[Rfam]
Rfam assigns this 341-nucleotide RNA sequence from Sphingomonas sp. BK345 to the family "Alphaproteobacteria transfer-messenger RNA". Lineage of the source: Bacteria > Pseudomonadati > Pseudomonadota > Sphingomonadaceae > Sphingomonas. A search with the family's covariance model found it, with a score of 212 bits. Rfam classes the family as a non-coding RNA gene. Bacterial tmRNA, also known as 10Sa RNA or SsrA, is named for its dual tRNA and mRNA-like properties. Its role is to liberate the mRNA from a stalled ribosome. To accomplish this part of the tmRNA is used as a reading frame that ends in a translation stop signal. The broken mRNA is replaced in the ribosome by the tmRNA and translation of the tmRNA leads to addition of a proteolysis tag to the incomplete protein enabling recognition by a protease. Recently a number of permuted tmRNA genes have been found encoded in two parts. tmRNAs have been identified in eubacteria and some chloroplasts but are absent from archaeal and eukaryote nuclear genomes.
RNA sequence: GGGCUUUUCCCGCGAUCCGCGUCCGCCUAUAUGACUCGCGUCGGGUUCUACCCGGCUAUGGCGAUAAACUGCGGCGUACAAUAGGCGCAGCGGACCCGGGGGCAGUACCCGGCGGCUCCACCAUCGCGGCUGCACGCAGCCGCGCUGACGGGGCCGAACCAGGAUCGACGUGUGUUGAAAAGCGCUGUUUUCGCUCGGAAUGGGACCACCGCAACGGCCCAUUACACAAGUGCCAACGACAACGAAGCACUCGCGAUUGCGGCGUAACUGACGGCCUAACGGCCUGACGUUACACCAAAAAAGCGCGGUCGGACCCCACCGGGCAACAGAAGGGGAUUCCA
Numbered sequence: 001g002g003g004c005u006u007u008u009c010c011c012g013c014g015a016u017c018c019g020c021g022u023c024c025g026c027c028u029a030u031a032u033g034a035c036u037c038g039c040g041u042c043g044g045g046u047u048c049u050a051c052c053c054g055g056c057u058a059u060g061g062c063g064a065u066a067a068a069c070u071g072c073g074g075c076g077u078a079c080a081a082u083a084g085g086c087g088c089a090g091c092g093g094a095c096c097c098g099g100g101g102g103c104a105g106u107a108c109c110c111g112g113c114g115g116c117u118c119c120a121c122c123a124u125c126g127c128g129g130c131u132g133c134a135c136g137c138a139g140c141c142g143c144g145c146u147g148a149c150g151g152g153g154c155c156g157a158a159c160c161a162g163g164a165u166c167g168a169c170g171u172g173u174g175u176u177g178a179a180a181a182g183c184g185c186u187g188u189u190u191u192c193g194c195u196c197g198g199a200a201u202g203g204g205a206c207c208a209c210c211g212c213a214a215c216g217g218c219c220c221a222u223u224a225c226a227c228a229a230g231u232g233c234c235a236a237c238g239a240c241a242a243c244g245a246a247g248c249a250c251u252c253g254c255g256a257u258u259g260c261g262g263c264g265u266a267a268c269u270g271a272c273g274g275c276c277u278a279a280c281g282g283c284c285u286g287a288c289g290u291u292a293c294a295c296c297a298a299a300a301a302a303g304c305g306c307g308g309u310c311g312g313a314c315c316c317c318a319c320c321g322g323g324c325a326a327c328a329g330a331a332g333g334g335g336a337u338u339c340c341a
Stems, first nucleotide, its partner, number of pairs: 040056005060195005071188007086174003090171003096112005113156007196211003201221003206217002306321004312340001317335001